[Rfam]
RNA sequence: AGGUCACAAUCAACAUUCAUUGCUGUCGGUGGGUUGAGUUUCCUAAAGCUCGCUGAACAAUGAGUGUAACUGUGGCCGG
Numbered sequence: 001a002g003g004u005c006a007c008a009a010u011c012a013a014c015a016u017u018c019a020u021u022g023c024u025g026u027c028g029g030u031g032g033g034u035u036g037a038g039u040u041u042c043c044u045a046a047a048g049c050u051c052g053c054u055g056a057a058c059a060a061u062g063a064g065u066g067u068a069a070c071u072g073u074g075g076c077c078g079g
Base pairs, nucleotide, nucleotide: 003077004075005074006073007072008071014066015065016064017063018062019061020060021059022058026056027055028054029053030052031051033049034048035047